[Rfam]
RNA sequence: UGACCUCAACUCAGUCGUGAUUACCCGCUGAAUUUAAGCAUAUAACUAAGCGGAGGAAAAGAAACUAACGAGGAUUUCCCUAGUAACGGCGAGUGAAAAGGAAAAAGCCCAACGCUGAAUCCAAUAGACAUUAUAUGGCUAUAUGGAAAUGUAGCGUAUAGGUAUAACUAUCCGUAACAUAUUUUUACACCCAAAGUCCCCUUGAGCGGGGCUACAGUCCAUAGAAGGUGCUAGACCUGUACGGGUGAAAAAAGUUACGGUAGGUUAUUCCUUGGAGUCGGGUUGUUUGAGAUUGCAGCCCAAAGAGGGUGGUAAACCUCAUCUAAGGCUAAAUACGACCAUGAGACCGAUAGCAAACAAGUACCGUGAGGGAAAGUUGCAAAGAACUUUGAAGAGAGAGUUCAAGAGGGCGUGAAACCGCUGAGAUGGAAA
Numbered sequence: 001u002g003a004c005c006u007c008a009a010c011u012c013a014g015u016c017g018u019g020a021u022u023a024c025c026c027g028c029u030g031a032a033u034u035u036a037a038g039c040a041u042a043u044a045a046c047u048a049a050g051c052g053g054a055g056g057a058a059a060a061g062a063a064a065c066u067a068a069c070g071a072g073g074a075u076u077u078c079c080c081u082a083g084u085a086a087c088g089g090c091g092a093g094u095g096a097a098a099a100g101g102a103a104a105a106a107g108c109c110c111a112a113c114g115c116u117g118a119a120u121c122c123a124a125u126a127g128a129c130a131u132u133a134u135a136u137g138g139c140u141a142u143a144u145g146g147a148a149a150u151g152u153a154g155c156g157u158a159u160a161g162g163u164a165u166a167a168c169u170a171u172c173c174g175u176a177a178c179a180u181a182u183u184u185u186u187a188c189a190c191c192c193a194a195a196g197u198c199c200c201c202u203u204g205a206g207c208g209g210g211g212c213u214a215c216a217g218u219c220c221a222u223a224g225a226a227g228g229u230g231c232u233a234g235a236c237c238u239g240u241a242c243g244g245g246u247g248a249a250a251a252a253a254g255u256u257a258c259g260g261u262a263g264g265u266u267a268u269u270c271c272u273u274g275g276a277g278u279c280g281g282g283u284u285g286u287u288u289g290a291g292a293u294u295g296c297a298g299c300c301c302a303a304a305g306a307g308g309g310u311g312g313u314a315a316a317c318c319u320c321a322u323c324u325a326a327g328g329c330u331a332a333a334u335a336c337g338a339c340c341a342u343g344a345g346a347c348c349g350a351u352a353g354c355a356a357a358c359a360a361g362u363a364c365c366g367u368g369a370g371g372g373a374a375a376g377u378u379g380c381a382a383a384g385a386a387c388u389u390u391g392a393a394g395a396g397a398g399a400g401u402u403c404a405a406g407a408g409g410g411c412g413u414g415a416a417a418c419c420g421c422u423g424a425g426a427u428g429g430a431a432a
Stems, first nucleotide, its partner, number of pairs: 024055001025053005035042002065072002076103004086094002106330004113156005119150001120147004124142004161271002164268004172264001174258005180252001186249001188247005196212001198211004220224001227237002280301007307324005364371002387398004
Dot-bracket structure: .......................((((((.....((....))......))))).).........((....))...((((......((.....)).....))))..((((...(((((.(((((((((...........)))).))))..).)))))....((.((((....(.(((((.(.....(.(((((...(.((((......))))).......(...)..((.......)).....))))).)..).))))).....))))).))........(((((((........))))))).....(((((........)))))..)))).................................((....))...............((((....))))..................................

This 432-nucleotide part of an RNA from Brugia malayi belongs to the Rfam family "Eukaryotic large subunit ribosomal RNA". It is one of the family's seed sequences.